[Rfam]
A member of the RNA family "Purine riboswitch aptamer" from Terrilactibacillus tamarindi, 102 nucleotides long. Lineage of the source: Bacteria > Bacillota > Bacilli > Caryophanales > Terrilactibacillus.
RNA sequence: UCUAAUUCAAUAACGUGCUCUUGUAUAAUAUCAGUAAUAAGGACUGAUAGUCUCUACCUAGUAACCGCAAAUCACUAGCCUACAAGAAAGUUUGAAGAUAUA
Numbered sequence: 001u002c003u004a005a006u007u008c009a010a011u012a013a014c015g016u017g018c019u020c021u022u023g024u025a026u027a028a029u030a031u032c033a034g035u036a037a038u039a040a041g042g043a044c045u046g047a048u049a050g051u052c053u054c055u056a057c058c059u060a061g062u063a064a065c066c067g068c069a070a071a072u073c074a075c076u077a078g079c080c081u082a083c084a085a086g087a088a089a090g091u092u093u094g095a096a097g098a099u100a101u102a
Stems, first nucleotide, its partner, number of pairs: 019087007029049007058078005064072001
Record summary: The base pairs follow the family's consensus structure, which is taken from published work. The match comes from Rfam's covariance-model search (80 bits). Riboswitches are metabolite binding domains within certain messenger RNAs that serve as precision sensors for their corresponding targets. Allosteric rearrangement of mRNA structure is mediated by ligand binding, and this results in modulation of gene expression. A class of riboswitches that selectively recognises guanine and becomes saturated at concentrations as low as 5 nM. In Bacillus subtilis, this mRNA motif is located on at least five separate transcriptional units that together encode 17 genes that are mostly involved in purine transport and purine nucleotide biosynthesis. It has also been shown that some members of this family are specific for adenine instead.